[Rfam]
RNA sequence: CUAUGGCAUGUAAGCCAUGGCGGAAGGAG
Numbered sequence: 001c002u003a004u005g006g007c008a009u010g011u012a013a014g015c016c017a018u019g020g021c022g023g024a025a026g027g028a029g
Stems, first nucleotide, its partner, number of pairs: 001020007
Shown here is a 29-nucleotide RNA sequence, a member of the family "L31-Firmicutes ribosomal protein leader". For this family Rfam cites "Discovery of 20 novel ribosomal leader candidates in bacteria and archaea" (Eckert and Weinberg, BMC Microbiol, 2020). The family's consensus secondary structure is taken from published work. The sequence is in the family's curated seed alignment.